[Rfam]
RNA sequence: UGGGUUUUCGUGUACAACAUGAUCGUUCGUCUUAUUUGAAAAUUUUAUGAAAAAAUUAAAAAAAUCACACAUAAAGUACUAUUCAUAUUUUAUCAUCCAAUAAUAAUAAAAAUACUAAUCACAAAAGAAUUUUUAAUAAGACGGACAAUCAAACGUUGGACACAGAAAUUC
Dot-bracket structure: ............(.((((.((((.(((((((((((....................................................................................................))))))))))).)))..).)))).)...........
Numbered sequence: 001u002g003g004g005u006u007u008u009c010g011u012g013u014a015c016a017a018c019a020u021g022a023u024c025g026u027u028c029g030u031c032u033u034a035u036u037u038g039a040a041a042a043u044u045u046u047a048u049g050a051a052a053a054a055a056u057u058a059a060a061a062a063a064a065u066c067a068c069a070c071a072u073a074a075a076g077u078a079c080u081a082u083u084c085a086u087a088u089u090u091u092a093u094c095a096u097c098c099a100a101u102a103a104u105a106a107u108a109a110a111a112a113u114a115c116u117a118a119u120c121a122c123a124a125a126a127g128a129a130u131u132u133u134u135a136a137u138a139a140g141a142c143g144g145a146c147a148a149u150c151a152a153a154c155g156u157u158g159g160a161c162a163c164a165g166a167a168a169u170u171c
Stems, first nucleotide, its partner, number of pairs: 013160001015158004020153001021150003025146011
Background: MIR812 microRNA precursor family: a 171-nucleotide RNA from Oryza sativa. The source organism's lineage runs through Eukaryota, Viridiplantae, Magnoliopsida, Liliopsida and Oryza. Pairs were carried over by alignment from the consensus structure, which was predicted with RNAalifold.